[Rfam]
RNA sequence: GGCAUAGCGCUUGCUGCGUGACCUCCAGCGGCGACCCAACGGCGGGUCGCGCAAGACAAUGGCGUCCC
Numbered sequence: 001g002g003c004a005u006a007g008c009g010c011u012u013g014c015u016g017c018g019u020g021a022c023c024u025c026c027a028g029c030g031g032c033g034a035c036c037c038a039a040c041g042g043c044g045g046g047u048c049g050c051g052c053a054a055g056a057c058a059a060u061g062g063c064g065u066c067c068c
Stems, first nucleotide, its partner, number of pairs: 031050007

Rfam assigns this 68-nucleotide RNA sequence from Pseudomonas panipatensis to the family "narK RNA". Taxonomically the source falls in Pseudomonas (Bacteria, Pseudomonadota, Pseudomonadales, Pseudomonadaceae). The base pairs follow the family's consensus structure, which is taken from published work. A search with the family's covariance model found it, with a score of 46 bits.